[Rfam]
Description: Shown here is a 126-nucleotide RNA from Octodon degus, a member of the family "Small nucleolar RNA SNORA38". From the family's description: ACA38 is a member of the H/ACA class of snoRNA that guide the sites of modification of uridines to pseudouridines. Gene Ontology terms of the family: nucleolus, RNA processing and Cajal body. Rfam classes the family as an H/ACA-box small nucleolar RNA. The family has 25 seed sequences and 628 matches in Rfam 15.1.
RNA sequence: CCCUCCUACAAAGGCAUGUCUUGGCUUCCUUUUCUUUGGACACAUUAGAAUUGGAGGCAAAAAAAAUGUUGAUUUGGAGACAUCAGGGCCAACCUGCUCUCCACAGCCUCCUAAAAUUACAAAAAA
Numbered sequence: 001c002c003c004u005c006c007u008a009c010a011a012a013g014g015c016a017u018g019u020c021u022u023g024g025c026u027u028c029c030u031u032u033u034c035u036u037u038g039g040a041c042a043c044a045u046u047a048g049a050a051u052u053g054g055a056g057g058c059a060a061a062a063a064a065a066a067u068g069u070u071g072a073u074u075u076g077g078a079g080a081c082a083u084c085a086g087g088g089c090c091a092a093c094c095u096g097c098u099c100u101c102c103a104c105a106g107c108c109u110c111c112u113a114a115a116a117u118u119a120c121a122a123a124a125a126a
Base pairs, nucleotide, nucleotide: 002057003056004055005054006053017042018041019040020039021038024030070119071118072117074116091109094106095105096104
Dot-bracket structure: .(((((..........(((((..(.....).......)))))..........)))))............(((.(................(..(((.......)))..)......)))).......